[Rfam]
RNA sequence: CGCGCACGUCCGGGAGACUCUGAUCCCACGGACAGGGCCGAAGGAGCAACCGCCCCGGUAAACUCUCAGGCAAACGGACCUGACGUGCAAA
Numbered sequence: 001c002g003c004g005c006a007c008g009u010c011c012g013g014g015a016g017a018c019u020c021u022g023a024u025c026c027c028a029c030g031g032a033c034a035g036g037g038c039c040g041a042a043g044g045a046g047c048a049a050c051c052g053c054c055c056c057g058g059u060a061a062a063c064u065c066u067c068a069g070g071c072a073a074a075c076g077g078a079c080c081u082g083a084c085g086u087g088c089a090a091a
Stems, first nucleotide, its partner, number of pairs: 006086005012080002020035003037071003040067002044065003050058002
Shown here is a 91-nucleotide sequence from Jannaschia donghaensis, a member of the family "Glycine riboswitch aptamer".
The organism belongs to Jannaschia, within Bacteria.
The base pairs follow the family's consensus structure.
A search with the family's covariance model found it, with a score of 56 bits.